[Rfam]
The family of this 99-nucleotide RNA sequence from Falsihalocynthiibacter arcticus is "Bacterial small signal recognition particle RNA".
Lineage of the source: Bacteria > Pseudomonadati > Pseudomonadota > Roseobacteraceae > Falsihalocynthiibacter.
Pairs were carried over by alignment from the consensus structure, which is taken from published work.
Rfam links the family to the GO terms signal recognition particle, plasma membrane targeting and SRP-dependent cotranslational protein targeting to membrane, signal sequence recognition.
The signal recognition particle (SRP) is a universally conserved ribonucleoprotein involved in the co-translational targeting of proteins to membranes.
RNA sequence: UGAGAGGUUGGCGCGGGCGAGCGCCUCGCCAACUCGGUCAGAUCCGGAAGGAAGCAGCCGUAACGAGAAUUGUUUGGGUCGAUGUCCAAUCUCUCACCU
Numbered sequence: 001u002g003a004g005a006g007g008u009u010g011g012c013g014c015g016g017g018c019g020a021g022c023g024c025c026u027c028g029c030c031a032a033c034u035c036g037g038u039c040a041g042a043u044c045c046g047g048a049a050g051g052a053a054g055c056a057g058c059c060g061u062a063a064c065g066a067g068a069a070u071u072g073u074u075u076g077g078g079u080c081g082a083u084g085u086c087c088a089a090u091c092u093c094u095c096a097c098c099u
Stems, first nucleotide, its partner, number of pairs: 004093005010086004014081002018076006025067004035060004043052003